[Rfam]
RNA sequence: AGCUGCCUCAGUAGCCCAGUCGUUAGGUAUGUAACCUUUCCUUGUGAGAACGUUGGUUCGACUCCGCUUGCCGACAAUUUCAUAAGAAAAGUUGCAGAUCGAGCUGCUGAGUUACCCGGAGGGGGGUGGCGCAAUUUUUUUAUAAAAUUUUUAUAU
Number, nucleotide and partner (000 for none) at each position: 001a000002g130003c129004u128005g127006c126007c125008u124009c123010a000011g115012u114013a113014g112015c111016c000017c109018a108019g107020u106021c000022g104023u103024u102025a000026g100027g099028u098029a000030u096031g095032u094033a093034a092035c091036c000037u090038u089039u088040c000041c086042u085043u084044g083045u082046g081047a080048g079049a078050a000051c000052g075053u074054u073055g072056g071057u070058u000059c066060g065061a000062c000063u000064c000065c060066g059067c000068u000069u000070g057071c056072c055073g054074a053075c052076a000077a000078u049079u048080u047081c046082a045083u044084a043085a042086g041087a000088a039089a038090a037091g035092u034093u033094g032095c031096a030097g000098a028099u027100c026101g000102a024103g023104c022105u000106g020107c019108u018109g017110a000111g015112u014113u013114a012115c011116c122117c121118g000119g000120a000121g117122g116123g009124g008125g007126g006127u005128g004129g003130c002131g000132c000133a000134a000135u000136u000137u000138u000139u000140u000141u000142a000143u000144a000145a000146a000147a000148u000149u000150u000151u000152u000153a000154u000155a000156u000
Plasmodium RNA of unknown function RUF6-5: a 156-nucleotide RNA sequence from Plasmodium falciparum. By type it is a small RNA. The source organism's lineage runs through Eukaryota, Alveolata, Aconoidasida, Haemosporida and Plasmodium falciparum. Rfam's curators put it in the seed alignment.